RNA sequence: ACUGGAAGCGUGGCGUCUUCUGUAAUCCGGCUACUCGGAGGUCAGGUUGUGGAAUGGUCUGAGGCCGGGGGUCCUGUGCGGCGGACUAGGAUACGUUGACGGUGCGUCCGCACUAAGCUCGCCAUCAAUAUGGGCGCCAGGGAGGAGUCUCAGGCGUUCAGGUUGGCUAAGGAGGAGCGAACCGGGCCAGGGGCGAAAGCCAGCAGCCAAGAGUUCCCGUGGUGAGCAGUAGUGGGAUAGCGCGCCGGAGUGUGCUACCGUCGUCAGCCCGGCCAAUAAGUCCAGACCUCAAUCUUU
Numbered sequence: 001a002c003u004g005g006a007a008g009c010g011u012g013g014c015g016u017c018u019u020c021u022g023u024a025a026u027c028c029g030g031c032u033a034c035u036c037g038g039a040g041g042u043c044a045g046g047u048u049g050u051g052g053a054a055u056g057g058u059c060u061g062a063g064g065c066c067g068g069g070g071g072u073c074c075u076g077u078g079c080g081g082c083g084g085a086c087u088a089g090g091a092u093a094c095g096u097u098g099a100c101g102g103u104g105c106g107u108c109c110g111c112a113c114u115a116a117g118c119u120c121g122c123c124a125u126c127a128a129u130a131u132g133g134g135c136g137c138c139a140g141g142g143a144g145g146a147g148u149c150u151c152a153g154g155c156g157u158u159c160a161g162g163u164u165g166g167c168u169a170a171g172g173a174g175g176a177g178c179g180a181a182c183c184g185g186g187c188c189a190g191g192g193g194c195g196a197a198a199g200c201c202a203g204c205a206g207c208c209a210a211g212a213g214u215u216c217c218c219g220u221g222g223u224g225a226g227c228a229g230u231a232g233u234g235g236g237a238u239a240g241c242g243c244g245c246c247g248g249a250g251u252g253u254g255c256u257a258c259c260g261u262c263g264u265c266a267g268c269c270c271g272g273c274c275a276a277u278a279a280g281u282c283c284a285g286a287c288c289u290c291a292a293u294c295u296u297u
Stems, first nucleotide, its partner, number of pairs: 001042003004021005026039003044295006051288002055284003059280002063274007074267003078264005087257003091253004096248001100247008108236002111234005117227009126165004131160008140151004167171001174217005185208003192201003
The family of this 297-nucleotide sequence from Hermetia illucens is "Metazoan signal recognition particle RNA". Rfam classes the family as a non-coding RNA gene. Its family is annotated with SRP-dependent cotranslational protein targeting to membrane, signal sequence recognition and signal recognition particle, endoplasmic reticulum targeting in the Gene Ontology. The family's consensus secondary structure is taken from published work.